[Rfam]
RNA sequence: AAGAUGACAUCAUUGCUGUGAGUCAUACUUUUAUGAACAGGAUUAAUCUUAGCAUAUAAAAGAAACUGCCCGGAUUGUCAGAAACCGGGACAGCUUU
Dot-bracket structure: ((((((((.((........))))))).)))...................................((((((((.((......))))))).)))....